[Rfam]
RNA sequence: GGUAAUUAAAUAAGCAUCUUGCGUAUAAUUUCGGGGAUAGGGCCCAGAGUUUCUACCAGACUACCGUAAAUGGUCUGACUACGCGGAUAAUAGUAAUUAGG
Numbered sequence: 001g002g003u004a005a006u007u008a009a010a011u012a013a014g015c016a017u018c019u020u021g022c023g024u025a026u027a028a029u030u031u032c033g034g035g036g037a038u039a040g041g042g043c044c045c046a047g048a049g050u051u052u053c054u055a056c057c058a059g060a061c062u063a064c065c066g067u068a069a070a071u072g073g074u075c076u077g078a079c080u081a082c083g084c085g086g087a088u089a090a091u092a093g094u095a096a097u098u099a100g101g
Stems, first nucleotide, its partner, number of pairs: 019086007029048003033045003057077007
The record is a 101-nucleotide sequence from Virgibacillus salinus, which matches "Purine riboswitch aptamer" in Rfam. NCBI's taxonomy places the organism under Bacteria, Bacillota, Bacilli, Bacillaceae, Virgibacillus.